[Rfam]
RNA sequence: UUUUAAAAUCAACUCCGAGUUUAGUAUUUCUAAGCAUUUUAAUUUAAAAUGUAUGAACACUUGACCGAUGGGUAAUAUAUAGGAAACUUAUUUGCCUCCCGAAGGAUUUUAUCCUAAAAUUGGAAAGGAGAUUUUGUGUUUAGAAA
Number, nucleotide and partner (000 for none) at each position: 001u000002u000003u000004u000005a000006a137007a000008a000009u000010c000011a132012a000013c130014u129015c128016c127017g000018a000019g065020u064021u063022u000023a061024g060025u059026a000027u000028u057029u056030c055031u000032a000033a000034g052035c051036a050037u049038u048039u047040u046041a000042a000043u000044u000045u000046a040047a039048a038049a037050u036051g035052u034053a000054u000055g030056a029057a028058c000059a025060c024061u023062u000063g021064a020065c019066c000067g000068a000069u000070g097071g096072g095073u094074a093075a092076u000077a091078u090079a000080u000081a088082g087083g000084a000085a000086a000087c082088u081089u000090a078091u077092u075093u074094g073095c072096c071097u070098c123099c122100c000101g000102a000103a000104g000105g000106a000107u000108u000109u000110u000111a000112u000113c000114c000115u000116a000117a000118a000119a000120u000121u000122g099123g098124a000125a000126a000127g016128g015129a014130g013131a000132u011133u000134u000135u000136g000137u006138g000139u000140u000141u000142a000143g000144a000145a000146a000
Rfam assigns this 146-nucleotide RNA from Ancylomarina longa to the family "Molybdenum/Tungsten riboswitch aptamer (Moco RNA motif)". Its family is annotated with molybdenum ion binding, tungstate binding and regulation of gene expression in the Gene Ontology.